[Rfam]
RNA sequence: CCCUUAUUCAGAGUGAUGGAGAUACAAAGGAUCUGUGAAGUCACGGCAACCCCGGACCUUGACGUUUGGCGUCAGGAGGAUGGAAGGUGCCAACCUGAGCGAGAAAUCGAGCAAUAAGAG
Numbered sequence: 001c002c003c004u005u006a007u008u009c010a011g012a013g014u015g016a017u018g019g020a021g022a023u024a025c026a027a028a029g030g031a032u033c034u035g036u037g038a039a040g041u042c043a044c045g046g047c048a049a050c051c052c053c054g055g056a057c058c059u060u061g062a063c064g065u066u067u068g069g070c071g072u073c074a075g076g077a078g079g080a081u082g083g084a085a086g087g088u089g090c091c092a093a094c095c096u097g098a099g100c101g102a103g104a105a106a107u108c109g110a111g112c113a114a115u116a117a118g119a120g
Base pairs, nucleotide, nucleotide: 001120003118004117005116006115007114008113013044014043015042016041017040021033022032023031030096045091046090047089048088050087051086052083053082054081100109101108102107

Rfam assigns this 120-nucleotide RNA from Hungatella hathewayi to the family "SAM riboswitch aptamer (S box leader)".